This 72-nucleotide RNA from Actinomyces massiliensis belongs to the Rfam family "tRNA". The base pairs follow the family's consensus structure, which is taken from published work.

RNA sequence: UGGGGUAUGGUGUAAUUGGCAACACAGGUGAUUCUGGUUCAUCCAUUCUAGGUUCGAGUCCUGGUACCCCAG
Numbered sequence: 001u002g003g004g005g006u007a008u009g010g011u012g013u014a015a016u017u018g019g020c021a022a023c024a025c026a027g028g029u030g031a032u033u034c035u036g037g038u039u040c041a042u043c044c045a046u047u048c049u050a051g052g053u054u055c056g057a058g059u060c061c062u063g064g065u066a067c068c069c070c071a072g
Stems, first nucleotide, its partner, number of pairs: 001071007010025004027043005048064005
Gene Ontology term of the family: triplet codon-amino acid adaptor activity.